A member of the RNA family "Small Cajal body specific RNA 6" from Ornithorhynchus anatinus, 274 nucleotides long. It is one of the family's seed sequences. Rfam links the family to the GO terms RNA processing and nucleolus. The base pairs follow the family's consensus structure, which is taken from published work. On this family, see Huttenhofer et al., EMBO J 2001: "RNomics: an experimental approach that identifies 201 candidates for novel, small, non-messenger RNAs in mouse". From the family's description: U88 is small Cajal body specific RNA (scaRNA). scaRNAs are a novel class of small nuclear RNAs which localise to the Cajal bodies. U88 is found associated with both fibrillarin and Gar1p and co-localises with coilin in Cajal bodies. It is annotated as a small Cajal body RNA.
[Rfam]
RNA sequence: GGUCAGUGAUGAAUAGUAAAAGGUCUGACUGGCCAGAGACUGCGCUUUCAUCACCAUCCUGAUUCCCUGCAGCCUCUUUUUCCAUCAGACCCCAGUAGUGCUCUGAUUGGCGGAGGAACUGCUGAAAUUGUGCGAUGUCUUCUACUUUUGUGUUCGCCGGAGUUCCGGGCGACACAGCAGUUGGGUAGGCGUCCAACAGGAGCAGUCGUAAAGGAGUUUCGGUGGUGGAAGUUUGGAGGUCUUGGUUGUGAUCUGAAGUUUUCAAGCUGAGACC
Number, nucleotide and partner (000 for none) at each position: 001g274002g273003u272004c271005a000006g000007u000008g000009a000010u000011g000012a000013a000014u000015a000016g000017u000018a000019a000020a000021a000022g000023g000024u000025c000026u000027g000028a000029c000030u000031g000032g000033c000034c000035a000036g000037a254038g253039a252040c000041u250042g000043c000044g000045c231046u230047u229048u228049c227050a226051u225052c224053a000054c000055c000056a000057u000058c000059c000060u000061g000062a000063u216064u215065c214066c213067c124068u000069g122070c121071a120072g119073c000074c000075u000076c000077u000078u000079u000080u000081u110082c109083c000084a107085u106086c105087a104088g103089a102090c100091c000092c000093c000094a000095g000096u000097a000098g000099u000100g090101c000102u089103c088104u087105g086106a085107u084108u000109g082110g081111c000112g000113g000114a000115g000116g000117a000118a000119c072120u071121g070122c069123u000124g067125a000126a000127a000128u000129u000130g000131u000132g194133c000134g193135a192136u191137g190138u189139c188140u000141u000142c000143u000144a000145c000146u000147u000148u000149u176150g175151u174152g173153u000154u172155c171156g170157c169158c168159g000160g000161a000162g000163u000164u000165c000166c000167g000168g158169g157170c156171g155172a154173c152174a151175c150176a149177g000178c000179a000180g000181u000182u000183g000184g000185g000186u000187a000188g139189g138190c137191g136192u135193c134194c132195a000196a000197c000198a000199g000200g000201a000202g000203c000204a000205g000206u000207c000208g000209u000210a000211a000212a000213g066214g065215a064216g063217u000218u000219u000220c000221g000222g000223u000224g052225g051226u050227g049228g048229a047230a046231g045232u000233u000234u000235g000236g000237a000238g000239g000240u000241c000242u000243u000244g000245g000246u000247u000248g000249u000250g041251a000252u039253c038254u037255g000256a000257a000258g000259u000260u000261u000262u000263c000264a000265a000266g000267c000268u000269g000270a000271g004272a003273c002274c001